[Rfam]
RNA: azaaromatic riboswitch aptamer (yjdF RNA)
RNA sequence: UAAAAGCAGGAUAAAAACGCAACGCAUUUCUUCCUGAGAGAUGCUAGAGCUGGUAGGUAGCCCAGCCGUCUGCACCGCACGGUGUAGGUAAGUAACCUUCCCCUCCGGGUUGUCCAUUCCUGUAAGGAUUUAU
Numbered sequence: 001u002a003a004a005a006g007c008a009g010g011a012u013a014a015a016a017a018c019g020c021a022a023c024g025c026a027u028u029u030c031u032u033c034c035u036g037a038g039a040g041a042u043g044c045u046a047g048a049g050c051u052g053g054u055a056g057g058u059a060g061c062c063c064a065g066c067c068g069u070c071u072g073c074a075c076c077g078c079a080c081g082g083u084g085u086a087g088g089u090a091a092g093u094a095a096c097c098u099u100c101c102c103c104u105c106c107g108g109g110u111u112g113u114c115c116a117u118u119c120c121u122g123u124a125a126g127g128a129u130u131u132a133u
Stems, first nucleotide, its partner, number of pairs: 006123006049066005068089009101109003